[Rfam]
The record is a 161-nucleotide RNA from Streptomyces jeddahensis, which matches "c-di-AMP riboswitch aptamer (ydaO/yuaA leader)" in Rfam. The match comes from Rfam's covariance-model search (62 bits). NCBI's taxonomy places the organism under Bacteria, Bacillati, Actinomycetota, Kitasatosporales, Streptomyces. The base pairs follow the family's consensus structure.
RNA sequence: CCACGGAAACCGAUCACUCAUGUAUGGCAGGAGCGGGGAACCCAGGUAAGUCGCCGAUCCGGAAACCGGACCGGCUAGGGGUGAAGUCGCAUUCACACUGCGGCCGGGCAUCUCCAGCCCGAACCCGACAGCUCACCUCGCAGGCGGCGGAGAGGAAUUCG
Number, nucleotide and partner (000 for none) at each position: 001c031002c030003a000004c000005g000006g000007a000008a000009a000010c000011c000012g000013a000014u000015c000016a000017c000018u000019c000020a000021u000022g000023u000024a000025u000026g000027g000028c000029a000030g002031g001032a000033g141034c140035g139036g138037g137038g136039a000040a000041c000042c000043c078044a000045g000046g000047u000048a000049a000050g000051u000052c000053g000054c000055c000056g000057a000058u000059c000060c000061g000062g000063a000064a000065a000066c000067c000068g000069g000070a000071c000072c000073g000074g000075c000076u000077a000078g043079g126080g125081g124082u000083g000084a000085a000086g000087u103088c102089g101090c100091a000092u000093u000094c000095a000096c000097a000098c000099u000100g090101c089102g088103g087104c000105c000106g120107g119108g118109c117110a000111u000112c000113u000114c000115c000116a000117g109118c108119c107120c106121g000122a000123a000124c081125c080126c079127g000128a000129c000130a000131g000132c000133u000134c000135a000136c038137c037138u036139c035140g034141c033142a000143g000144g000145c000146g000147g000148c000149g000150g000151a000152g000153a000154g000155g000156a000157a000158u000159u000160c000161g000